[Rfam]
RNA sequence: ACCUGAGGGGUCUUCUGGGGGCUCUUGCCUUCUCUCCCACUUCCCGGGGCUUCUGGGAGAGCAGUCUGUCUAAAAGCCCCGGCUCUUGCCA
Numbered sequence: 001a002c003c004u005g006a007g008g009g010g011u012c013u014u015c016u017g018g019g020g021g022c023u024c025u026u027g028c029c030u031u032c033u034c035u036c037c038c039a040c041u042u043c044c045c046g047g048g049g050c051u052u053c054u055g056g057g058a059g060a061g062c063a064g065u066c067u068g069u070c071u072a073a074a075a076g077c078c079c080c081g082g083c084u085c086u087u088g089c090c091a
Stems, first nucleotide, its partner, number of pairs: 004088001006086001008085002012082001018080004026068002029064002032061007
Dot-bracket structure: ...(.(.((..(.....((((....((.((.(((((((................))))))).))..))........)))).).))).)...
This 91-nucleotide RNA sequence from Sarcophilus harrisii belongs to the Rfam family "NoRC associated RNA, pRNA". Rfam classes the family as a non-coding RNA gene. The source organism's lineage runs through Eukaryota, Deuterostomia, Vertebrata, Dipnotetrapodomorpha and Sarcophilus.